RNA sequence: GGAUGAUAUGAUGAGGAAAUGUUUCCCUAUUGGUUUGAUUGCCGAGAUGAUGGCGUCGACCUUGUUAUUAGCUCUAUCUGAUCUUCC
Numbered sequence: 001g002g003a004u005g006a007u008a009u010g011a012u013g014a015g016g017a018a019a020u021g022u023u024u025c026c027c028u029a030u031u032g033g034u035u036u037g038a039u040u041g042c043c044g045a046g047a048u049g050a051u052g053g054c055g056u057c058g059a060c061c062u063u064g065u066u067a068u069u070a071g072c073u074c075u076a077u078c079u080g081a082u083c084u085u086c087c
Stems, first nucleotide, its partner, number of pairs: 002086002005083001037057001040055004
Background
Shown here is an 87-nucleotide sequence from Tripterygium wilfordii, a member of the family "Small nucleolar RNA Z102/R77". Pairs were carried over by alignment from the consensus structure, which was predicted with PFOLD. On this family, see Chen et al., Nucleic Acids Res 2003: "The high diversity of snoRNAs in plants: identification and comparative study of 120 snoRNA genes from Oryza sativa".